Description: A member of the RNA family "pemK RNA" from Tissierella creatinophila, 64 nucleotides long. Rfam classes the family as a cis-regulatory element. The source organism's lineage runs through Bacteria, Bacillati, Tissierellia, Tissierellales and Tissierella creatinophila. Pairs were carried over by alignment from the consensus structure, which is taken from published work.
RNA sequence: ACAAUGAUACUUCUAUACGUUGUUGCUCCCUACCGAGAAAAGGGGAGAGGUGAAAUUCCUAUGU
Numbered sequence: 001a002c003a004a005u006g007a008u009a010c011u012u013c014u015a016u017a018c019g020u021u022g023u024u025g026c027u028c029c030c031u032a033c034c035g036a037g038a039a040a041a042g043g044g045g046a047g048a049g050g051u052g053a054a055a056u057u058c059c060u061a062u063g064u
Stems, first nucleotide, its partner, number of pairs: 012061001013025001015023002026047003030043001031041001048060003